The record is an 85-nucleotide RNA from a Selenomonadales bacterium, which matches "RAGATH-28 RNA" in Rfam. The organism belongs to Selenomonadales, within Bacteria. The match comes from Rfam's covariance-model search (49 bits).
RNA sequence: CUGGGGUUGAUUCGUCCCCCGGGCAGGAUGACCGUGACAUAGGAUUGUAGGCGCCAGAGCCCGAAUGGGGUCUGGAUGGCGUAGC
Number, nucleotide and partner (000 for none) at each position: 001c022002u021003g020004g019005g018006g017007u000008u000009g000010a000011u000012u000013c000014g000015u000016c000017c006018c005019c004020c003021g002022g001023g000024c000025a000026g000027g000028a000029u000030g000031a000032c000033c000034g000035u000036g000037a000038c000039a000040u000041a000042g000043g000044a000045u000046u000047g000048u000049a000050g000051g000052c000053g000054c000055c074056a073057g072058a071059g000060c069061c068062c067063g000064a000065a000066u000067g062068g061069g060070g000071u058072c057073u056074g055075g000076a000077u000078g000079g000080c000081g000082u000083a000084g000085c000